[Rfam]
RNA sequence: AUAAAUUGAAGAGGCGCAACCAACAUGAGUAGCUACCAAGAGCCGGGUCAGGCAAGGAGGGGGAGUGAAAGGGGCGGUUGCCGAAGCACGGGGAAGUGACCGUUCCCUGGGGCUGGGGCGUGGCUUAAGAGGCUGCGGACUGUCGCGGGACAAUGAGAGCCUGCGGUGCGCUAUCAAUUAC
Numbered sequence: 001a002u003a004a005a006u007u008g009a010a011g012a013g014g015c016g017c018a019a020c021c022a023a024c025a026u027g028a029g030u031a032g033c034u035a036c037c038a039a040g041a042g043c044c045g046g047g048u049c050a051g052g053c054a055a056g057g058a059g060g061g062g063g064a065g066u067g068a069a070a071g072g073g074g075c076g077g078u079u080g081c082c083g084a085a086g087c088a089c090g091g092g093g094a095a096g097u098g099a100c101c102g103u104u105c106c107c108u109g110g111g112g113c114u115g116g117g118g119c120g121u122g123g124c125u126u127a128a129g130a131g132g133c134u135g136c137g138g139a140c141u142g143u144c145g146c147g148g149g150a151c152a153a154u155g156a157g158a159g160c161c162u163g164c165g166g167u168g169c170g171c172u173a174u175c176a177a178u179u180a181c
Stems, first nucleotide, its partner, number of pairs: 006176001008174001010172002016081006024073001032066003036062002085114003089109007115141002119137007143166007
Rfam assigns this 181-nucleotide RNA from Limosilactobacillus fermentum to the family "Lysine riboswitch aptamer". NCBI's taxonomy places the organism under Bacteria, Bacilli, Lactobacillales, Lactobacillaceae, Limosilactobacillus. The base pairs follow the family's consensus structure, which is taken from published work.